RNA sequence: UCAGGAAGAUGACUAGGAUUCUCCUGUGAUGAAUCCCCCUAUGCGGUGGGGCGUCUAGACAGGCAGGUGAGUAGCGCGAUUCUGUGGUCUGGCGCAGAGUCACUGGGAGGCACCCAGCAUCACACUCAAUAAUGAGCUUCUUUGCUCGGUCUUAAGAGAUCGGAUACUGUCG
Numbered sequence: 001u002c003a004g005g006a007a008g009a010u011g012a013c014u015a016g017g018a019u020u021c022u023c024c025u026g027u028g029a030u031g032a033a034u035c036c037c038c039c040u041a042u043g044c045g046g047u048g049g050g051g052c053g054u055c056u057a058g059a060c061a062g063g064c065a066g067g068u069g070a071g072u073a074g075c076g077c078g079a080u081u082c083u084g085u086g087g088u089c090u091g092g093c094g095c096a097g098a099g100u101c102a103c104u105g106g107g108a109g110g111c112a113c114c115c116a117g118c119a120u121c122a123c124a125c126u127c128a129a130u131a132a133u134g135a136g137c138u139u140c141u142u143u144g145c146u147c148g149g150u151c152u153u154a155a156g157a158g159a160u161c162g163g164a165u166a167c168u169g170u171c172g
Base pairs, nucleotide, nucleotide: 025124026123027122028121029120030119031118036051037050038049039048058068071077072076078101079100080099081098082097083096084095103117104116105115106114107113137172143166144165146163147162148161149160150159151158
RNA: Gammaproteobacterial sRNA STnc100